Shown here is a 46-nucleotide RNA sequence from Dissostichus mawsoni, a member of the family "Histone 3' UTR stem-loop". About the family: The mRNAs of metazoan histone genes lack a poly-A tail. 3' end processing occurs at a site between a highly conserved stem-loop (modelled by this family) and a purine rich region around 20 nts downstream (the histone downstream element, or HDE). By type it is a cis-regulatory element. For this family Rfam cites "The sequence of the stem and flanking sequences at the 3' end of histone mRNA are critical determinants for the binding of the stem-loop binding protein" (Williams and Marzluff, Nucleic Acids Res, 1995). The base pairs follow the family's consensus structure, which is taken from published work. A search with the family's covariance model found it, with a score of 42 bits.
[Rfam]
RNA sequence: ACAACGGCUCUUUUCAGAGCCACCCAAAUUACUCAAAAGAGUGUUU
Number, nucleotide and partner (000 for none) at each position: 001a000002c000003a000004a000005c000006g021007g020008c019009u018010c017011u016012u000013u000014u000015c000016a011017g010018a009019g008020c007021c006022a000023c000024c000025c000026a000027a000028a000029u000030u000031a000032c000033u000034c000035a000036a000037a000038a000039g000040a000041g000042u000043g000044u000045u000046u000